[Rfam]
RNA sequence: CAGUUUCCUUCUUCAACAGUGCUUGAAUGGAACCG
Numbered sequence: 001c002a003g004u005u006u007c008c009u010u011c012u013u014c015a016a017c018a019g020u021g022c023u024u025g026a027a028u029g030g031a032a033c034c035g
Stems, first nucleotide, its partner, number of pairs: 001035001003033003007030002012027005017021001
Rfam assigns this 35-nucleotide RNA from Neotoma lepida to the family "Iron response element I".
Pairs were carried over by alignment from the consensus structure, which is taken from published work.
The organism belongs to Neotoma, within Eukaryota.
By type it is a cis-regulatory element.